[Rfam]
RNA sequence: UGGCGAAGGUCCCAGCAGGGAGGGUAAAACAAACUCUAUCAGAGACCUCUCUAACACAAUAUAAUACCUUCGUAGAUUUUAUUGCCGAUUCGUAGGACUCGUUAAUCUUUCUUUCGAUUUUUAACGAGUCUUUUAUAAUUGGCUACAUUUUU
Numbered sequence: 001u002g003g004c005g006a007a008g009g010u011c012c013c014a015g016c017a018g019g020g021a022g023g024g025u026a027a028a029a030c031a032a033a034c035u036c037u038a039u040c041a042g043a044g045a046c047c048u049c050u051c052u053a054a055c056a057c058a059a060u061a062u063a064a065u066a067c068c069u070u071c072g073u074a075g076a077u078u079u080u081a082u083u084g085c086c087g088a089u090u091c092g093u094a095g096g097a098c099u100c101g102u103u104a105a106u107c108u109u110u111c112u113u114u115c116g117a118u119u120u121u122u123a124a125c126g127a128g129u130c131u132u133u134u135a136u137a138a139u140u141g142g143c144u145a146c147a148u149u150u151u152u
Stems, first nucleotide, its partner, number of pairs: 003073007011020003028050001034044004084143007096130002099127007
Shown here is a 152-nucleotide RNA sequence from Papaver somniferum, a member of the family "Small nucleolar RNA snoR145". Pairs were carried over by alignment from the consensus structure, which was predicted with mfold. It is annotated as an H/ACA-box small nucleolar RNA. Taxonomically the source falls in Papaver (Eukaryota, Streptophyta, Euphyllophyta, Spermatophyta).